[Rfam]
RNA: Vertebrate telomerase RNA
Nucleotides: 454
Base pairs, nucleotide, nucleotide: 005183006182008180009179010178012176013175014174015173018170020169021168022167051100052099053098054097055096061095062094063093064092065091067089068088069087078163079162080161081160082159083158084156085155086154187364188363189362190361191360199328200327201326202325204324205323224317226315227314228313232309233308234307235306236305250283251282252281253280254279256278257277258276261271262270263269285297286296287295288294377446378445379444380443383442384441385440386439387438388437405434406433407432408431409430412427413426414425415424
Number, partner (000 for none) and nucleotide at each position: 001000c002000c003000c004000u005183u006182c007000c008180g009179g010178g011000c012176a013175a014174g015173g016000c017000a018170g019000g020169c021168c022167c023000u024000g025000g026000g027000c028000c029000g030000g031000u032000a033000a034000c035000c036000c037000u038000a039000a040000u041000g042000g043000u044000g045000g046000c047000u048000g049000u050000g051100c052099c053098c054097u055096c056000g057000c058000u059000a060000u061095c062094g063093c064092c065091c066000g067089c068088u069087g070000u071000u072000u073000u074000a075000g076000u077000u078163g079162c080161u081160g082159a083158c084156u085155u086154u087069c088068a089067g090000a091065g092064g093063g094062c095061g096055g097054a098053g099052g100051g101000a102000a103000c104000g105000g106000c107000c108000g109000a110000g111000g112000g113000a114000a115000a116000g117000g118000g119000g120000a121000a122000a123000g124000g125000g126000g127000g128000g129000a130000g131000c132000g133000g134000g135000g136000a137000g138000g139000a140000g141000g142000a143000c144000c145000g146000g147000c148000c149000u150000c151000a152000a153000a154086a155085a156084a157000c158083g159082u160081c161080a162079g163078c164000u165000a166000u167022g168021g169020g170018u171000a172000u173015c174014c175013u176012u177000a178010u179009c180008c181000c182006g183005a184000c185000c186000c187364u188363g189362g190361g191360g192000u193000c194000c195000c196000u197000g198000u199328c200327c201326c202325u203000c204324c205323c206000c207000c208000g209000c210000a211000a212000a213000g214000c215000g216000g217000g218000a219000u220000g221000a222000u223000c224317c225000c226315a227314u228313c229000a230000u231000c232309g233308c234307c235306g236305g237000c238000c239000c240000u241000c242000g243000c244000g245000g246000a247000g248000g249000c250283c251282g252281c253280g254279g255000u256278c257277g258276g259000g260000u261271g262270g263269u264000u265000c266000a267000g268000c269263g270262c271261u272000a273000u274000u275000a276258c277257c278256g279254c280253c281252g282251c283250g284000a285297a286296g287295a288294g289000u290000u291000c292000g293000g294288c295287u296286c297285u298000g299000u300000c301000a302000g303000c304000c305236u306235u307234g308233g309232c310000g311000a312000u313228g314227a315226u316000c317224g318000g319000g320000a321000g322000a323205g324204g325202a326201g327200g328199g329000c330000c331000g332000g333000c334000c335000c336000a337000c338000c339000c340000a341000g342000c343000c344000u345000g346000g347000g348000c349000a350000g351000c352000c353000g354000g355000g356000a357000g358000a359000c360191u361190c362189c363188c364187a365000a366000c367000c368000g369000a370000a371000c372000a373000a374000a375000a376000c377446g378445g379444g380443c381000g382000c383442g384441g385440c386439g387438c388437c389000g390000c391000g392000g393000g394000g395000c396000g397000c398000u399000g400000a401000g402000c403000a404000g405434c406433c407432g408431c409430g410000g411000c412427u413426c414425c415424u416000u417000c418000g419000g420000a421000c422000g423000u424415g425414g426413g427412g428000u429000g430409c431408g432407c433406g434405g435000c436000c437388g438387g439386c440385g441384c442383c443380g444379c445378c446377c447000c448000g449000a450000c451000a452000g453000c454000c